Description
Bacterial RNase P class A: a 354-nucleotide RNA from Rothia nasimurium. The source organism's lineage runs through Bacteria, Actinomycetota, Actinomycetes, Micrococcaceae and Rothia. The match comes from Rfam's covariance-model search (314 bits). Rfam classes the family as a ribozyme. Ribonuclease P (RNase P) is a ubiquitous endoribonuclease, found in archaea, bacteria and eukarya as well as chloroplasts and mitochondria. Clan: RNaseP clan.

RNA sequence: CGGGAUGCCCAGGCAACCGCGCGGCUAAACAGCCUCGAGGAAAGUCCGGGCUCCACAGCACAGGGUGGUCGAUAACGUCGACUCAAGGUAACUUGCAGGCCAGUGCCACAGAAAACAAACCGCCCCACACAGGGGUAAGGGUGAAAAGGUGAGGUAAAAGCUCACCAGUGCCGCAGGUGACUGCGGUAGCUCGGUAAACCCCACCCGGAGCAAGGCCAAACAGAGCGCGCCAGUAAUCAGUGCGGUGAAGCGCUCGGGUAGGCUGCUUGAGCCCCCAGGCAACUGCGGGCCUAGAUGGAUGGUUGCCGCCCACGUUGGUGGGUACAGAACCCGGCUUAUCGGGCAUCCUGUUCA
Numbered sequence: 001c002g003g004g005a006u007g008c009c010c011a012g013g014c015a016a017c018c019g020c021g022c023g024g025c026u027a028a029a030c031a032g033c034c035u036c037g038a039g040g041a042a043a044g045u046c047c048g049g050g051c052u053c054c055a056c057a058g059c060a061c062a063g064g065g066u067g068g069u070c071g072a073u074a075a076c077g078u079c080g081a082c083u084c085a086a087g088g089u090a091a092c093u094u095g096c097a098g099g100c101c102a103g104u105g106c107c108a109c110a111g112a113a114a115a116c117a118a119a120c121c122g123c124c125c126c127a128c129a130c131a132g133g134g135g136u137a138a139g140g141g142u143g144a145a146a147a148g149g150u151g152a153g154g155u156a157a158a159a160g161c162u163c164a165c166c167a168g169u170g171c172c173g174c175a176g177g178u179g180a181c182u183g184c185g186g187u188a189g190c191u192c193g194g195u196a197a198a199c200c201c202c203a204c205c206c207g208g209a210g211c212a213a214g215g216c217c218a219a220a221c222a223g224a225g226c227g228c229g230c231c232a233g234u235a236a237u238c239a240g241u242g243c244g245g246u247g248a249a250g251c252g253c254u255c256g257g258g259u260a261g262g263c264u265g266c267u268u269g270a271g272c273c274c275c276c277a278g279g280c281a282a283c284u285g286c287g288g289g290c291c292u293a294g295a296u297g298g299a300u301g302g303u304u305g306c307c308g309c310c311c312a313c314g315u316u317g318g319u320g321g322g323u324a325c326a327g328a329a330c331c332c333g334g335c336u337u338a339u340c341g342g343g344c345a346u347c348c349u350g351u352u353c354a
Stems, first nucleotide, its partner, number of pairs: 001350010011339001012307007020037002023034004042337003046334005051210004058243004063206005068082005083097001084095004098201002103199002105195003120140002122136005148166006168190001169188008214264004223255006234248001236246003271290004276285003